[Rfam]
RNA sequence: AUCUUACAAACUUUAUAGACUCGUAUAACUGUGAGAAUAUGGCUCACAAGUCUCUACCAAACGACCGAAAAUUGUUUGACUACGAGUGAAGAUCGUGAAAAC
Numbered sequence: 001a002u003c004u005u006a007c008a009a010a011c012u013u014u015a016u017a018g019a020c021u022c023g024u025a026u027a028a029c030u031g032u033g034a035g036a037a038u039a040u041g042g043c044u045c046a047c048a049a050g051u052c053u054c055u056a057c058c059a060a061a062c063g064a065c066c067g068a069a070a071a072u073u074g075u076u077u078g079a080c081u082a083c084g085a086g087u088g089a090a091g092a093u094c095g096u097g098a099a100a101a102c
Stems, first nucleotide, its partner, number of pairs: 019087007030048006058078007
The family of this 102-nucleotide RNA from Evansella caseinilytica is "Purine riboswitch aptamer". Pairs were carried over by alignment from the consensus structure, which is taken from published work. The match comes from Rfam's covariance-model search (85 bits). The organism belongs to Evansella, within Bacteria.